[Rfam]
The record is a 154-nucleotide RNA sequence from Amborella trichopoda, which matches "MIR8565 microRNA precursor family" in Rfam. Pairs were carried over by alignment from the consensus structure, which was predicted with RNAalifold.
RNA sequence: CCCACAGCCAUGUGCGUAGGAUCCCAAACGAUCUCCAUUAAAUUUGGCACAGAUCUCUAGAAAUGUUAUCACAUGAGUGUGGGACUUGACUUUUCUAGAGAUUUGUGUCAAAUUUAAUGGUGAUCCUUUAGGGUCCUACACACAUGGCUGUGGA
Numbered sequence: 001c002c003c004a005c006a007g008c009c010a011u012g013u014g015c016g017u018a019g020g021a022u023c024c025c026a027a028a029c030g031a032u033c034u035c036c037a038u039u040a041a042a043u044u045u046g047g048c049a050c051a052g053a054u055c056u057c058u059a060g061a062a063a064u065g066u067u068a069u070c071a072c073a074u075g076a077g078u079g080u081g082g083g084a085c086u087u088g089a090c091u092u093u094u095c096u097a098g099a100g101a102u103u104u105g106u107g108u109c110a111a112a113u114u115u116a117a118u119g120g121u122g123a124u125c126c127u128u129u130a131g132g133g134u135c136c137u138a139c140a141c142a143c144a145u146g147g148c149u150g151u152g153g154a
Stems, first nucleotide, its partner, number of pairs: 002153012016139009026129003030125003035120029065090004069082005